[Rfam]
RNA sequence: GAUCACAGUGAUGACCCCAUGAAAUUCAAGCUCAACAGACCGGAAUGCAGGGUUGUCUCUAUCUAGGGAUGUUACUUUGCGUGUCGACCACCCCGCUGACCUGAGUGAUC
Dot-bracket structure: ((((((..................................................................................................))))))
Overview: Shown here is a 110-nucleotide RNA from Senna tora, a member of the family "Small nucleolar RNA Z107/R87". It scores 89 bits against the family's covariance model. It is annotated as a C/D-box small nucleolar RNA.